RNA sequence: GCCUGGCUGCACUGUAAGUCGCUUUGGGUAAAAGCGUCUGCUAAAUGCAUAAAU
Numbered sequence: 001g002c003c004u005g006g007c008u009g010c011a012c013u014g015u016a017a018g019u020c021g022c023u024u025u026g027g028g029u030a031a032a033a034g035c036g037u038c039u040g041c042u043a044a045a046u047g048c049a050u051a052a053a054u
Base pairs, nucleotide, nucleotide: 013043014041015040016039020036021035022034023033024032025031

Shown here is a 54-nucleotide RNA from Cyprinus carpio, a member of the family "UnaL2 LINE 3' element". Taxonomically the source falls in Cyprinus carpio (Eukaryota, Teleostei, Osteoglossocephalai, Clupeocephala). Pairs were carried over by alignment from the consensus structure, which is taken from published work. By type it is a cis-regulatory element. About the family: The eel long interspersed element (LINE) UnaL2 and its partner short interspersed element (SINE) share a conserved 3' tail containing a stem-loop that is critical for their retrotransposition. Presumably, the first step of retrotransposition is the recognition of their 3' tails by UnaL2-encoded reverse transcriptase. The solution structure of a 17-nucleotide RNA derived from the 3' tail of UnaL2 was determined by NMR. The literature on the family includes a 2004 paper in RNA by Baba et al., "Solution structure of an RNA stem-loop derived from the 3' conserved region of eel LINE UnaL2".